Rfam assigns this 120-nucleotide sequence from Dipodomys ordii to the family "Small nucleolar RNA SNORA26". A search with the family's covariance model found it, with a score of 118 bits. Lineage of the source: Eukaryota > Metazoa > Sarcopterygii > Heteromyidae > Dipodomys. On this family, see Huttenhofer et al., EMBO J 2001: "RNomics: an experimental approach that identifies 201 candidates for novel, small, non-messenger RNAs in mouse". Its Rfam clan is "SNORA27 clan". By type it is an H/ACA-box small nucleolar RNA.
[Rfam]
RNA sequence: GUGCCCUUUUAAGGUUGACCACAUCUUAAGAGGCUAACACAAAAGAGUAAAUGAAAUCUCCAUAAAACCCAGAGAUGAGGCAGUAAAACUCCUCUUUGGAUCCUGUCUGGAGUUACAACU
Numbered sequence: 001g002u003g004c005c006c007u008u009u010u011a012a013g014g015u016u017g018a019c020c021a022c023a024u025c026u027u028a029a030g031a032g033g034c035u036a037a038c039a040c041a042a043a044a045g046a047g048u049a050a051a052u053g054a055a056a057u058c059u060c061c062a063u064a065a066a067a068c069c070c071a072g073a074g075a076u077g078a079g080g081c082a083g084u085a086a087a088a089c090u091c092c093u094c095u096u097u098g099g100a101u102c103c104u105g106u107c108u109g110g111a112g113u114u115a116c117a118a119c120u
Stems, first nucleotide, its partner, number of pairs: 002049003006045005014038004019030001056114001058112005069099007077091003